[Rfam]
RNA sequence: GUGUGUGCACAGGCACACACACACCUCACACACUGUUUGGCCACAGGCUUU
Numbered sequence: 001g002u003g004u005g006u007g008c009a010c011a012g013g014c015a016c017a018c019a020c021a022c023a024c025c026u027c028a029c030a031c032a033c034u035g036u037u038u039g040g041c042c043a044c045a046g047g048c049u050u051u
Base pairs, nucleotide, nucleotide: 001020002019003018004017005016006015007014008013039049040048041047042046
RNA: Cyanobacterial functional RNA 1